[Rfam]
RNA sequence: AAUGGAAGAAUGAAAAAUAAGAUUUUUUUUCUCUUGAUUUUUAGCUUUUUUCUGCUGAAAAAAAUCAAAUCCAACUAAAAAUGCUAAAAAUUAAGAGAAAAAAUCUGAUUUGUCAUUCUUUUAUU
Dot-bracket structure: (((((((((((((.((((.((((((((...(((((((((((.((..((((...........................))))..)).))))))))))).)))))))).)))).)))))))))))))

This 125-nucleotide RNA from Gossypium mustelinum belongs to the Rfam family "MIR7504 microRNA precursor family". Rfam links the family to the GO terms miRNA-mediated post-transcriptional gene silencing and RISC complex. It scores 96 bits against the family's covariance model.